[Rfam]
RNA sequence: AUGCGAAGUCACCCCUCAUGGACGGAGCAAAGCGGAGUCAAAUCUGCCAGAAGAUGAACAAAAACCUCAUGCGAGGCCGACUGGGUGGGACGAGGUGGCACAACACACCGAAAUUCCGUCAUUCAGCUCAGGAGGUAAAUGAGGCGUUUGGGCAGAGGAGGUUUCAGGG
Numbered sequence: 001a002u003g004c005g006a007a008g009u010c011a012c013c014c015c016u017c018a019u020g021g022a023c024g025g026a027g028c029a030a031a032g033c034g035g036a037g038u039c040a041a042a043u044c045u046g047c048c049a050g051a052a053g054a055u056g057a058a059c060a061a062a063a064a065c066c067u068c069a070u071g072c073g074a075g076g077c078c079g080a081c082u083g084g085g086u087g088g089g090a091c092g093a094g095g096u097g098g099c100a101c102a103a104c105a106c107a108c109c110g111a112a113a114u115u116c117c118g119u120c121a122u123u124c125a126g127c128u129c130a131g132g133a134g135g136u137a138a139a140u141g142a143g144g145c146g147u148u149u150g151g152g153c154a155g156a157g158g159a160g161g162u163u164u165c166a167g168g169g
Base pairs, nucleotide, nucleotide: 002007033167035165039161043156044155045154046153047152048151049149050148051147053145065144066143067142068141069140070139076136077135078134081131082130083129084128085127086126088116089115090114094109095108096107097106